RNA sequence: CGAACGGGGAAAGCGAUCUCCCCGCGAGGCGCCAAGCCAAAGUAUCGCGUCCCGUUCGCCAAGGACGCAGCAUG
Numbered sequence: 001c002g003a004a005c006g007g008g009g010a011a012a013g014c015g016a017u018c019u020c021c022c023c024g025c026g027a028g029g030c031g032c033c034a035a036g037c038c039a040a041a042g043u044a045u046c047g048c049g050u051c052c053c054g055u056u057c058g059c060c061a062a063g064g065a066c067g068c069a070g071c072a073u074g
Stems, first nucleotide, its partner, number of pairs: 005024006047068006
Shown here is a 74-nucleotide RNA from Bradyrhizobium erythrophlei, a member of the family "chrB-a RNA".
It scores 75 bits against the family's covariance model.
The organism belongs to Bradyrhizobium, within Bacteria.
Rfam classes the family as a cis-regulatory element.